[Rfam]
RNA sequence: UAGCACUUGAUACUAACCGAGCCAUCCGUAUCCCAGACCUUGUGCAGAGGUCUGAGAUACACCUUGUGAUUGCUGGGUCUGAAAAGUGCAACAGUGAAGCAAGCCAUGAAGUGUUUAAGCUCGGUGUAUAAAGGAUGACACUGGGUUAUAACUCAGAGGCACAGAA
Numbered sequence: 001u002a003g004c005a006c007u008u009g010a011u012a013c014u015a016a017c018c019g020a021g022c023c024a025u026c027c028g029u030a031u032c033c034c035a036g037a038c039c040u041u042g043u044g045c046a047g048a049g050g051u052c053u054g055a056g057a058u059a060c061a062c063c064u065u066g067u068g069a070u071u072g073c074u075g076g077g078u079c080u081g082a083a084a085a086g087u088g089c090a091a092c093a094g095u096g097a098a099g100c101a102a103g104c105c106a107u108g109a110a111g112u113g114u115u116u117a118a119g120c121u122c123g124g125u126g127u128a129u130a131a132a133g134g135a136u137g138a139c140a141c142u143g144g145g146u147u148a149u150a151a152c153u154c155a156g157a158g159g160c161a162c163a164g165a166a
Base pairs, nucleotide, nucleotide: 003089004088005087006086007085008084016078017077018076020074021073022072024070025069026068028060029059030058031057032056034054036052037051038050039049040048041047103160104159105158124139125138129134141156142155143154144153145152146151
Rfam assigns this 166-nucleotide RNA sequence from Antrostomus carolinensis to the family "Small Cajal body specific RNA 1". The source organism's lineage runs through Eukaryota, Metazoa, Teleostomi, Sarcopterygii and Antrostomus. Rfam's curators write: scaRNAs are a specific class of small nuclear RNAs which localise to the Cajal bodies and guide the modification of RNA polymerase II transcribed spliceosomal RNAs U1, U2, U4, U5 and U12. The base pairs follow the family's consensus structure, which was predicted with RNAalifold. It scores 124 bits against the family's covariance model. Gene Ontology terms of the family: Cajal body, RNA processing and nucleolus. Rfam 15.1 lists 715 matches to the family in 617 species.